This 112-nucleotide RNA from Rosa chinensis belongs to the Rfam family "Small nucleolar RNA snoR99".
Taxonomically the source falls in Rosa (Eukaryota, Embryophyta, Spermatophyta, Rosaceae).
[Rfam]
RNA sequence: GUGCUUUAGGGUUGAACAGGUCCCCAAAUUAAUCUUACUCCAUCCUUUUUCACUUUGUCAGCUAUCUUUUAUUUUUUUUGUGUCUUGCUGAUCAUUGUUGGAUGGUAUAGGU
Numbered sequence: 001g002u003g004c005u006u007u008a009g010g011g012u013u014g015a016a017c018a019g020g021u022c023c024c025c026a027a028a029u030u031a032a033u034c035u036u037a038c039u040c041c042a043u044c045c046u047u048u049u050u051c052a053c054u055u056u057g058u059c060a061g062c063u064a065u066c067u068u069u070u071a072u073u074u075u076u077u078u079u080g081u082g083u084c085u086u087g088c089u090g091a092u093c094a095u096u097g098u099u100g101g102a103u104g105g106u107a108u109a110g111g112u
Stems, first nucleotide, its partner, number of pairs: 040105005057092006064085001